Rfam assigns this 77-nucleotide RNA sequence from Histidinibacterium lentulum to the family "Singlet oxygen resistance RNA X". The pairing is the family consensus, mapped onto this sequence. For this family Rfam cites "Photooxidative stress-induced and abundant small RNAs in Rhodobacter sphaeroides" (Berghoff et al., Mol Microbiol, 2009). Rfam links the family to the GO term response to photooxidative stress. Rfam's curators write: SorX (RSs2461)like SorY is a singlet oxygen induced sRNA that counteracts oxidative stress by targeting mRNA for a transporter in Rhodobacter. It also has an impact on resistance against organic hydroperoxides. It targets SD sequence of potA mRNA via an aSD sequence. The aSD sequence and some neighbouring nucleotides are identical to the one of SorY (targets takP mRNA). Rfam classes the family as a small RNA.
RNA sequence: CACUUGCAGGCGGCAAGGUCUUGCCUCCUUCAUACCUCCCUGUUGGACUUAGCCGGGCUUCAUGCCCGGCUUUUUUU
Numbered sequence: 001c002a003c004u005u006g007c008a009g010g011c012g013g014c015a016a017g018g019u020c021u022u023g024c025c026u027c028c029u030u031c032a033u034a035c036c037u038c039c040c041u042g043u044u045g046g047a048c049u050u051a052g053c054c055g056g057g058c059u060u061c062a063u064g065c066c067c068g069g070c071u072u073u074u075u076u077u
Stems, first nucleotide, its partner, number of pairs: 008029003012025003051071008